[Rfam]
RNA sequence: GGUUGUGGUAGUUUCUUUCUGGCUCAUUUGUCAAGUUUUCAAAUGGGCCCGACUCUACCACAUACAUUGUAAGGAGCUGGCAAAGGCUUAAGACAGAAAGAUCUCUCUUGAGCUUUUUGUGCAUCAAAUAUUGGCUCUUACAGUC
Numbered sequence: 001g002g003u004u005g006u007g008g009u010a011g012u013u014u015c016u017u018u019c020u021g022g023c024u025c026a027u028u029u030g031u032c033a034a035g036u037u038u039u040c041a042a043a044u045g046g047g048c049c050c051g052a053c054u055c056u057a058c059c060a061c062a063u064a065c066a067u068u069g070u071a072a073g074g075a076g077c078u079g080g081c082a083a084a085g086g087c088u089u090a091a092g093a094c095a096g097a098a099a100g101a102u103c104u105c106u107c108u109u110g111a112g113c114u115u116u117u118u119g120u121g122c123a124u125c126a127a128a129u130a131u132u133g134g135c136u137c138u139u140a141c142a143g144u145c
Base pairs, nucleotide, nucleotide: 005061006060007059008058009057010056011055021049022048023047025045026044027043028042029041030040073138074137075136076135077134078133079088080087081086104130106128108126